[Rfam]
Shown here is an 87-nucleotide RNA sequence from Acacia auriculiformis, a member of the family "MIR2086 microRNA precursor family". Lineage of the source: Eukaryota > Streptophytina > Fabales > Caesalpinioideae > Acacia. Rfam links the family to the GO terms miRNA-mediated post-transcriptional gene silencing and RISC complex.
Nucleotides: 087
Stems, first nucleotide, its partner, number of pairs: 003085006014073004024063003027057005032051008
Number, partner (000 for none) and nucleotide at each position: 001000u002000g003085c004084u005083u006082u007081c008080c009000u010000c011000c012000u013000g014073g015072u016071a017070u018000a019000u020000u021000u022000u023000g024063c025062a026061u027057u028056u029055g030054c031053u032051g033050g034049u035048u036047u037046c038045u039044u040000u041000a042000a043000g044039a045038g046037g047036a048035a049034a050033u051032c052000g053031a054030g055029c056028a057027a058000c059000a060000a061026g062025u063024g064000a065000c066000a067000u068000g069000a070017a071016u072015g073014c074000a075000g076000a077000a078000c079000u080008g081007g082006a083005a084004a085003g086000a087000u